[Rfam]
Small Cajal body specific RNA 1: a 161-nucleotide RNA from Propithecus coquereli. A search with the family's covariance model found it, with a score of 162 bits. By type it is a small Cajal body RNA. About the family: scaRNAs are a specific class of small nuclear RNAs which localise to the Cajal bodies and guide the modification of RNA polymerase II transcribed spliceosomal RNAs U1, U2, U4, U5 and U12. The literature on the family includes a 2002 paper in EMBO J by Darzacq et al., "Cajal body-specific small nuclear RNAs: a novel class of 2'-O-methylation and pseudouridylation guide RNAs". The family's consensus secondary structure was predicted with RNAalifold. Its family is annotated with RNA processing, Cajal body and nucleolus in the Gene Ontology.
RNA sequence: CAGCACUUGAUACUAACCGAGCCAUCUAUAUCUUAGUCUUGUGUCAAAGGCUUGUGAUGUGUUGUGAUAGCUGGAUUUAAGAAGCGCAAUAUUAAAAGCCAUGAGCCUUUUAAGUCCAGUGUGUAAAGAUACACUCUGAGUUAUAACUCAAAGGCACAACA
Numbered sequence: 001c002a003g004c005a006c007u008u009g010a011u012a013c014u015a016a017c018c019g020a021g022c023c024a025u026c027u028a029u030a031u032c033u034u035a036g037u038c039u040u041g042u043g044u045c046a047a048a049g050g051c052u053u054g055u056g057a058u059g060u061g062u063u064g065u066g067a068u069a070g071c072u073g074g075a076u077u078u079a080a081g082a083a084g085c086g087c088a089a090u091a092u093u094a095a096a097a098g099c100c101a102u103g104a105g106c107c108u109u110u111u112a113a114g115u116c117c118a119g120u121g122u123g124u125a126a127a128g129a130u131a132c133a134c135u136c137u138g139a140g141u142u143a144u145a146a147c148u149c150a151a152a153g154g155c156a157c158a159a160c161a
Stems, first nucleotide, its partner, number of pairs: 003087002006084003015077002018074001020072003024068003027061006033054001035052006098155003119134006135152001137150005